[Rfam]
Description
A member of the RNA family "Selenocysteine transfer RNA" from Synergistes jonesii, 93 nucleotides long. For this family Rfam cites "Eukaryotic selenocysteine tRNA has the 9/4 secondary structure" (Mizutani and Goto, FEBS Lett, 2000). The family's consensus secondary structure is taken from published work. It scores 70 bits against the family's covariance model.

RNA sequence: GGAGGCGCUUUUCGGCCGGUGCCGGGCCCGGACUUCAAAUCCGGUGGGGGGAGUUAACGACUUCCUCGGUGUGUUCGACUCGCACACGCCUCC
Numbered sequence: 001g002g003a004g005g006c007g008c009u010u011u012u013c014g015g016c017c018g019g020u021g022c023c024g025g026g027c028c029c030g031g032a033c034u035u036c037a038a039a040u041c042c043g044g045u046g047g048g049g050g051g052a053g054u055u056a057a058c059g060a061c062u063u064c065c066u067c068g069g070u071g072u073g074u075u076c077g078a079c080u081c082g083c084a085c086a087c088g089c090c091u092c093c
Base pairs, nucleotide, nucleotide: 001093002092003091004090005089006088007087011026012025013024014023015022016021028044029043030042031041032040047067048066049065050064051063070084071083072082073081